[Rfam]
RNA sequence: GCCCUAGUAGCUCAGCGCCAGAGCGCCGGUCUUGUAAUCCGGAAGUCGGAGGUUAAAACCCUCCCUAGUGCU
Number, nucleotide and partner (000 for none) at each position: 001g071002c070003c000004c068005u067006a066007g065008u000009a000010g024011c023012u022013c021014a000015g000016c000017g000018c000019c000020a000021g013022a012023g011024c010025g000026c042027c041028g040029g039030u000031c000032u000033u000034g000035u000036a000037a000038u000039c029040c028041g027042g026043a000044a000045g000046u000047c000048g064049g063050a062051g061052g060053u000054u000055a000056a000057a000058a000059c000060c052061c051062u050063c049064c048065c007066u006067a005068g004069u000070g002071c001072u000
RNA: tRNA